[Rfam]
Xanthomonadaceae sRNA sX13: a 118-nucleotide sequence from Spiribacter salinus.
It is annotated as a small RNA.
RNA sequence: AGUGCCCGGCGCGGCCCGCUAUUCCCUCCCUUUUAGCGGGCCAUGGGAUCCGGCCCCGCCCCCAAGGCCGGGUCCAUCGUCCCCGAAGGCCACACCCCAUGGCCUUCGGGGUUUUUUA
Number, nucleotide and partner (000 for none) at each position: 001a000002g000003u000004g012005c000006c011007c000008g000009g000010c000011g006012c004013g042014g041015c040016c039017c038018g037019c036020u035021a034022u000023u000024c000025c000026c000027u000028c000029c000030c000031u000032u000033u000034u021035a020036g019037c018038g017039g016040g015041c014042c013043a000044u000045g000046g075047g074048a073049u072050c071051c070052g069053g068054c067055c066056c000057c000058g000059c000060c000061c000062c000063c000064a000065a000066g055067g054068c053069c052070g051071g050072g049073u048074c047075c046076a000077u000078c000079g113080u000081c111082c110083c109084c108085g107086a106087a000088g104089g103090c102091c101092a000093c000094a000095c000096c000097c000098c000099a000100u000101g091102g090103c089104c088105u000106u086107c085108g084109g083110g082111g081112u000113u079114u000115u000116u000117u000118a000